[Rfam]
RNA sequence: ACAUCCCGUGCGGGAGAGUCGUUGCGGCAGGUCCUCCGGACGGGUCGCAGUGCGCCGAAGGGGCAAAUCCUCCCGGAACCUCUCAGGCAUCCAGGACCGCACGGGUUGG
Numbered sequence: 001a002c003a004u005c006c007c008g009u010g011c012g013g014g015a016g017a018g019u020c021g022u023u024g025c026g027g028c029a030g031g032u033c034c035u036c037c038g039g040a041c042g043g044g045u046c047g048c049a050g051u052g053c054g055c056c057g058a059a060g061g062g063g064c065a066a067a068u069c070c071u072c073c074c075g076g077a078a079c080c081u082c083u084c085a086g087g088c089a090u091c092c093a094g095g096a097c098c099g100c101a102c103g104g105g106u107u108g109g
Base pairs, nucleotide, nucleotide: 006104007103008102009101010100011099012098013097020052021051022050023049024048025047026046027045028044054088055087056086057084058083061082062081063080